Shown here is a 232-nucleotide part of an RNA from Pelagicoccus mobilis, a member of the family "Bacterial large subunit ribosomal RNA". The organism belongs to Pelagicoccus, within Bacteria. The base pairs follow the family's consensus structure, which is taken from published work. Rfam links the family to the GO terms ribosome and structural constituent of ribosome.
RNA sequence: GAGUUUAUGCACGUAGCAAGCCUAAGUAUCUUCGAUACGGAGGCGCAGCGAAAGCGAGUCUGAAUAGGGCGUCGAGUUGCUUGCAUAAGACCCGAAGCGGAGGUGAUCUAACCAUGGCCAGGUUGAAGCUUCAGUAAAAUGAAGUGGAGGACCGAACGGAUAUACCUUGAGAAGUGUUCCGAUGAGCUGUGGUUCGGAGCGAAAGACUAAUCAAACCCCGUGAUAGCUGGUU
Numbered sequence: 001g002a003g004u005u006u007a008u009g010c011a012c013g014u015a016g017c018a019a020g021c022c023u024a025a026g027u028a029u030c031u032u033c034g035a036u037a038c039g040g041a042g043g044c045g046c047a048g049c050g051a052a053a054g055c056g057a058g059u060c061u062g063a064a065u066a067g068g069g070c071g072u073c074g075a076g077u078u079g080c081u082u083g084c085a086u087a088a089g090a091c092c093c094g095a096a097g098c099g100g101a102g103g104u105g106a107u108c109u110a111a112c113c114a115u116g117g118c119c120a121g122g123u124u125g126a127a128g129c130u131u132c133a134g135u136a137a138a139a140u141g142a143a144g145u146g147g148a149g150g151a152c153c154g155a156a157c158g159g160a161u162a163u164a165c166c167u168u169g170a171g172a173a174g175u176g177u178u179c180c181g182a183u184g185a186g187c188u189g190u191g192g193u194u195c196g197g198a199g200c201g202a203a204a205g206a207c208u209a210a211u212c213a214a215a216c217c218c219c220g221u222g223a224u225a226g227c228u229g230g231u232u
Stems, first nucleotide, its partner, number of pairs: 005088007013080005020044004026038003048055002058070004091230002094227001098220003102217003108196001110194009119184001121153004128145006157181003162177004198208002